[Rfam]
RNA sequence: AGGUGGGACACCCCUCCCCAACGAGGGGCGCAUAUCUGUGAGGAUACUACCG
Numbered sequence: 001a002g003g004u005g006g007g008a009c010a011c012c013c014c015u016c017c018c019c020a021a022c023g024a025g026g027g028g029c030g031c032a033u034a035u036c037u038g039u040g041a042g043g044a045u046a047c048u049a050c051c052g
Stems, first nucleotide, its partner, number of pairs: 011028006033046005
Overview:
The record is a 52-nucleotide RNA from Roseobacter sp. HKCCD8822, which matches "serC leader" in Rfam. The pairing is the family consensus, mapped onto this sequence. For this family Rfam cites "Evidence for a second class of S-adenosylmethionine riboswitches and other regulatory RNA motifs in alpha-proteobacteria" (Corbino et al., Genome Biol, 2005). By type it is a cis-regulatory leader. Its family is annotated with regulation of gene expression in the Gene Ontology. The match comes from Rfam's covariance-model search (67 bits). This family is a putative regulatory RNA structure that is found upstream of the serC-serA operon in some alpha-proteobacteria. The final stem of the structure overlaps the ribosome binding site of the serC reading frame.